Rfam assigns this 101-nucleotide RNA from Candidatus Izimoplasma sp. ZiA1 to the family "Purine riboswitch aptamer".
About the family: Riboswitches are metabolite binding domains within certain messenger RNAs that serve as precision sensors for their corresponding targets.

RNA sequence: UUAUACUAAAUAAGAUUUUUGCGUAUAACUGUUUAAAUAUGGUAAACGAGUCUCUACCUCACACCGUAAAUUGUGAGACUACGCAAAGAAAACAUUCAUUU
Numbered sequence: 001u002u003a004u005a006c007u008a009a010a011u012a013a014g015a016u017u018u019u020u021g022c023g024u025a026u027a028a029c030u031g032u033u034u035a036a037a038u039a040u041g042g043u044a045a046a047c048g049a050g051u052c053u054c055u056a057c058c059u060c061a062c063a064c065c066g067u068a069a070a071u072u073g074u075g076a077g078a079c080u081a082c083g084c085a086a087a088g089a090a091a092a093c094a095u096u097c098a099u100u101u
Base pairs, nucleotide, nucleotide: 018087019086020085021084022083023082024081025080030048031047032046033045034044035043058077059076060075061074062073063072